[Rfam]
RNA sequence: UGUCUCCUCCACCCUCCUCCUUUGGUGUGGAUUAAGCCCGAGCCCUUACAGGCCCGGGCUUUUUUUU
Numbered sequence: 001u002g003u004c005u006c007c008u009c010c011a012c013c014c015u016c017c018u019c020c021u022u023u024g025g026u027g028u029g030g031a032u033u034a035a036g037c038c039c040g041a042g043c044c045c046u047u048a049c050a051g052g053c054c055c056g057g058g059c060u061u062u063u064u065u066u067u
Base pairs, nucleotide, nucleotide: 008031009030010029011028012027013025014024035060036059037058038057039056040055042053
Rfam assigns this 67-nucleotide sequence from Zoogloea dura to the family "Betaproteobacteria toxic small RNA". For this family Rfam cites "A vast collection of microbial genes that are toxic to bacteria" (Kimelman et al., Genome Res, 2012). The source organism's lineage runs through Bacteria, Pseudomonadati, Pseudomonadota, Zoogloeaceae and Zoogloea.